[Rfam]
RNA: Xanthomonadaceae sRNA sX13
RNA sequence: AACGUCCGUCGCACGAUCUCUCCCCUCCCCUGGAGUGAUCCCCAACGGAGCGAAGACCCCCUCCCCAGGUCGAGCUCCACCCAGCCCCGCCGGCCCCCCCUGCCUGCGGGGCUUUUUA
Dot-bracket structure: .....(....)...((((.((((........)))).))))......(((((...((((.........))))..)))))....((((((((.(((.......))).)))))))).....